[Rfam]
RNA sequence: GCCGAGGUGGCGGAAUAGGCAGACGCGCUAGCUUGAGGGGCUAGUGCCCGUUUAGGGCGUGGGGGUUCAAAUCCCUUCCUCGGCA
Number, nucleotide and partner (000 for none) at each position: 001g084002c083003c082004g081005a080006g079007g078008u000009g000010g026011c025012g024013g000014a000015a000016u000017a000018g000019g000020c000021a000022g000023a000024c012025g011026c010027g000028c044029u043030a042031g041032c040033u000034u000035g000036a000037g000038g000039g000040g032041c031042u030043a029044g028045u000046g000047c000048c000049c000050g000051u000052u000053u000054a000055g000056g000057g000058c000059g000060u000061g077062g076063g075064g074065g073066u000067u000068c000069a000070a000071a000072u000073c065074c064075c063076u062077u061078c007079c006080u005081c004082g003083g002084c001085a000
tRNA: an 85-nucleotide RNA sequence from Sphaerobacter thermophilus.
The base pairs follow the family's consensus structure, which is taken from published work.
Rfam links the family to the GO term triplet codon-amino acid adaptor activity.
The family's RNA type in Rfam is transfer RNA.
Lineage of the source: Bacteria > Thermomicrobiota > Sphaerobacterineae > Sphaerobacteraceae > Sphaerobacter thermophilus.
It scores 52 bits against the family's covariance model.